[Rfam]
RNA: raiA RNA
RNA sequence: AAAAGCCGUGUUUGUGGUUGAAAGUCGAUGCCAGUCGCAGGCAAAACGAUCCACGUAAGCGGGGCAAAGCCCCCGUGAGCAUGGUGCGGCUUAGAAGUAAGUCCGGCCGGGAAACCGAGAGAGGCAGUAGUGGGGAGCAUUUCGCUUAGGAGCGAACCCUCCAGCCGGCGAGUGUGGGGUCAAAGACCAGGUCAGGCGGCUAUG
Numbered sequence: 001a002a003a004a005g006c007c008g009u010g011u012u013u014g015u016g017g018u019u020g021a022a023a024g025u026c027g028a029u030g031c032c033a034g035u036c037g038c039a040g041g042c043a044a045a046a047c048g049a050u051c052c053a054c055g056u057a058a059g060c061g062g063g064g065c066a067a068a069g070c071c072c073c074c075g076u077g078a079g080c081a082u083g084g085u086g087c088g089g090c091u092u093a094g095a096a097g098u099a100a101g102u103c104c105g106g107c108c109g110g111g112a113a114a115c116c117g118a119g120a121g122a123g124g125c126a127g128u129a130g131u132g133g134g135g136a137g138c139a140u141u142u143c144g145c146u147u148a149g150g151a152g153c154g155a156a157c158c159c160u161c162c163a164g165c166c167g168g169c170g171a172g173u174g175u176g177g178g179g180u181c182a183a184a185g186a187c188c189a190g191g192u193c194a195g196g197c198g199g200c201u202a203u204g
Stems, first nucleotide, its partner, number of pairs: 002203001004201006012195003015189005028175003031041001033091007050084002058076001061073003082182001103168005108117003121161004130153002136146003